Shown here is a 76-nucleotide RNA sequence from Conger conger, a member of the family "Small nucleolar RNA SNORD47". By type it is a C/D-box small nucleolar RNA. Gene Ontology terms of the family: nucleolus and RNA processing. The family has 20 seed sequences and 755 matches in Rfam 15.1. Lineage of the source: Eukaryota > Elopocephala > Anguilliformes > Congridae > Conger.

[Rfam]
RNA sequence: AACCAGUGAUGAAGAGAUUCUGCCAAAUGAGUUGUACUGAUUAUAACCUUUACCGUUCCAUUAUAUUUCUGAGGUU
Numbered sequence: 001a002a003c004c005a006g007u008g009a010u011g012a013a014g015a016g017a018u019u020c021u022g023c024c025a026a027a028u029g030a031g032u033u034g035u036a037c038u039g040a041u042u043a044u045a046a047c048c049u050u051u052a053c054c055g056u057u058c059c060a061u062u063a064u065a066u067u068u069c070u071g072a073g074g075u076u
Stems, first nucleotide, its partner, number of pairs: 001076004